[Rfam]
RNA sequence: CAGUUGUGCCUUAGCAGCAUAUAAAUAUUGGAGUUAUCAUUAGUAAAGUGUCUCCAGUAUCAGUUGUGCUGCUAAAGUAAGGCUGUU
Numbered sequence: 001c002a003g004u005u006g007u008g009c010c011u012u013a014g015c016a017g018c019a020u021a022u023a024a025a026u027a028u029u030g031g032a033g034u035u036a037u038c039a040u041u042a043g044u045a046a047a048g049u050g051u052c053u054c055c056a057g058u059a060u061c062a063g064u065u066g067u068g069c070u071g072c073u074a075a076a077g078u079a080a081g082g083c084u085g086u087u
Base pairs, nucleotide, nucleotide: 001085002084003083004082011075012074013073014072015071016070017069018068019067020066021065022063025060026059027058028057029056030055031054032053033052

This 87-nucleotide RNA sequence from Ophiophagus hannah belongs to the Rfam family "mir-15 microRNA precursor family". Rfam's curators put it in the seed alignment. The family has 164 seed sequences and 2,045 matches in Rfam 15.1. The family's consensus secondary structure was predicted with RNAalifold. Clan: mir-15 clan. For this family Rfam cites "Identification of novel genes coding for small expressed RNAs" (Lagos-Quintana et al., Science, 2001). Lineage of the source: Eukaryota > Bilateria > Deuterostomia > Elapidae > Ophiophagus.